[Rfam]
RNA: Archaeal small subunit ribosomal RNA, nucleotides 1 to 508
Organism: Candidatus Haloredivivus sp. G17
RNA sequence: AUUCUGGUUGAUCCUGCCAGAGACUACCGCUAUCGGAGUCCGAUUGAGCCAUGCUAGUCCACCGGCCUUUGGCCGGGGCGGAUAGCUGAGUAACACGUGGCCAACCUGCCCUAUGGACGAGGAUAACCUCGGGAAACUGAGGCUAACCCUCGAUAGUAGAGAGUUACUGGAAAUGUUCUCUCUGCGAAAUGUUCCGACGCCAUAGGAUGGGGCCGCGGCUGAUUAGGUCGUUGGUGAGGUAACGGCUCACCAAGCCGAUAAUCAGUAGCAGCCGUGAGAGCGGGAGCUGUCAGUCGGCUUCUGAGACAAGAAGCCGGGCCCUACGGGGUGCAGCAGGCACGAAACCUUCACAAUGCACGCAAGUGCGAUGGGGGGACUCCGAGUGUGGUCUUCCCACAAGGAAGGCCACUUUUCUGCACUGUAAGGAGGUGCCGGAACAAGGGGUGGGCAAUACUGCUGCCAGCCGCCGCGGUAAUAGCAGAACCCCGAGUGGUAGUCGUUAUUAUUG
Numbered sequence: 001a002u003u004c005u006g007g008u009u010g011a012u013c014c015u016g017c018c019a020g021a022g023a024c025u026a027c028c029g030c031u032a033u034c035g036g037a038g039u040c041c042g043a044u045u046g047a048g049c050c051a052u053g054c055u056a057g058u059c060c061a062c063c064g065g066c067c068u069u070u071g072g073c074c075g076g077g078g079c080g081g082a083u084a085g086c087u088g089a090g091u092a093a094c095a096c097g098u099g100g101c102c103a104a105c106c107u108g109c110c111c112u113a114u115g116g117a118c119g120a121g122g123a124u125a126a127c128c129u130c131g132g133g134a135a136a137c138u139g140a141g142g143c144u145a146a147c148c149c150u151c152g153a154u155a156g157u158a159g160a161g162a163g164u165u166a167c168u169g170g171a172a173a174u175g176u177u178c179u180c181u182c183u184g185c186g187a188a189a190u191g192u193u194c195c196g197a198c199g200c201c202a203u204a205g206g207a208u209g210g211g212g213c214c215g216c217g218g219c220u221g222a223u224u225a226g227g228u229c230g231u232u233g234g235u236g237a238g239g240u241a242a243c244g245g246c247u248c249a250c251c252a253a254g255c256c257g258a259u260a261a262u263c264a265g266u267a268g269c270a271g272c273c274g275u276g277a278g279a280g281c282g283g284g285a286g287c288u289g290u291c292a293g294u295c296g297g298c299u300u301c302u303g304a305g306a307c308a309a310g311a312a313g314c315c316g317g318g319c320c321c322u323a324c325g326g327g328g329u330g331c332a333g334c335a336g337g338c339a340c341g342a343a344a345c346c347u348u349c350a351c352a353a354u355g356c357a358c359g360c361a362a363g364u365g366c367g368a369u370g371g372g373g374g375g376a377c378u379c380c381g382a383g384u385g386u387g388g389u390c391u392u393c394c395c396a397c398a399a400g401g402a403a404g405g406c407c408a409c410u411u412u413u414c415u416g417c418a419c420u421g422u423a424a425g426g427a428g429g430u431g432c433c434g435g436a437a438c439a440a441g442g443g444g445u446g447g448g449c450a451a452u453a454c455u456g457c458u459g460c461c462a463g464c465c466g467c468c469g470c471g472g473u474a475a476u477a478g479c480a481g482a483a484c485c486c487c488g489a490g491u492g493g494u495a496g497u498c499g500u501u502a503u504u505a506u507u508g
Stems, first nucleotide, its partner, number of pairs: 004020005022498010033382009042340001048338003052335003057079003062076006086293003096217007105210002110206007118152004127142006157184007166176002191198002219265003226256003231253008268290004272283004295316006318329004346372001348371003354367005385409010414434001416432005441487005454481004463470002
Dot-bracket structure: ...(((((.......))))).((((((((((.((((((((((.....(((.(((..(((..((((((...)))))))))......(((.......(((((((..((...(((((((.((((.....((((((....))))))......))))....(((((((..((.......)).)))))))......((....)).)))))))..))))))))).(((....(((..((((((((.......)))))))))))......)))..((((((((....))))...))))))).((((((..........)))))).((((....))))...)))))).).....(.(((...(((((....))))).)))).)))))))))..((((((((((.....))))))))))....(.(((((.......))))).)......(((((........((((.....((....)).......)))).))))).))))))))))..........